[Rfam]
RNA sequence: GAGAUAUGAUGAAUUUUUCAUUGGUCCGUGUUUCUGAUUAACUGUGACCGAAAACCUUUUUCCAAUUUCUGAUCUC
Numbered sequence: 001g002a003g004a005u006a007u008g009a010u011g012a013a014u015u016u017u018u019c020a021u022u023g024g025u026c027c028g029u030g031u032u033u034c035u036g037a038u039u040a041a042c043u044g045u046g047a048c049c050g051a052a053a054a055c056c057u058u059u060u061u062c063c064a065a066u067u068u069c070u071g072a073u074c075u076c
Stems, first nucleotide, its partner, number of pairs: 001076004
Overview:
This 76-nucleotide sequence from Lupinus albus belongs to the Rfam family "Small nucleolar RNA SNORD18".